[Rfam]
RNA: Glycine riboswitch aptamer
RNA sequence: AGAUCCCACGCGGGAGAGAAUGGCGCAUGCCAUCGCCGAAGGCGCAACCGGCCCCCGGAAACGCUCAGGCAAAAGGGCCGCGUGGGGAAG
Numbered sequence: 001a002g003a004u005c006c007c008a009c010g011c012g013g014g015a016g017a018g019a020a021u022g023g024c025g026c027a028u029g030c031c032a033u034c035g036c037c038g039a040a041g042g043c044g045c046a047a048c049c050g051g052c053c054c055c056c057g058g059a060a061a062c063g064c065u066c067a068g069g070c071a072a073a074a075g076g077g078c079c080g081c082g083u084g085g086g087g088a089a090g
Stems, first nucleotide, its partner, number of pairs: 006085008020033004035070003038066002042064003048058002